[Rfam]
RNA sequence: UCAGAUGUCUAUCGUUUCUUACGGAAAAGAAAAACCAGCCGUACUGGGCCACGACGAAGCUGCCUAUGCUAAAAACCGUCGUGCCGUACUGGUUUAUUAAGAGAGCAACAUGAUUAGUAACUUCAGACCUCAUCUGUUG
Numbered sequence: 001u002c003a004g005a006u007g008u009c010u011a012u013c014g015u016u017u018c019u020u021a022c023g024g025a026a027a028a029g030a031a032a033a034a035c036c037a038g039c040c041g042u043a044c045u046g047g048g049c050c051a052c053g054a055c056g057a058a059g060c061u062g063c064c065u066a067u068g069c070u071a072a073a074a075a076c077c078g079u080c081g082u083g084c085c086g087u088a089c090u091g092g093u094u095u096a097u098u099a100a101g102a103g104a105g106c107a108a109c110a111u112g113a114u115u116a117g118u119a120a121c122u123u124c125a126g127a128c129c130u131c132a133u134c135u136g137u138u139g
Base pairs, nucleotide, nucleotide: 001047002046003045004044014035015034016033017032019030020029054138057135059133062130065127067125068124075118076117078115079113080112081111082110083109086106087105089103090102
Rfam assigns this 139-nucleotide RNA from Erwinia sp. OLSSP12 to the family "CpoB/ybgF ICR thermometer". The family's RNA type in Rfam is RNA thermoregulator. The match comes from Rfam's covariance-model search (120 bits). Imprinting control region from upstream of cpoB/ybgF (tol/pal system protein). The base pairs follow the family's consensus structure. For this family Rfam cites "Temperature-responsive in vitro RNA structurome of Yersinia pseudotuberculosis" (Righetti et al., Proc Natl Acad Sci U S A, 2016).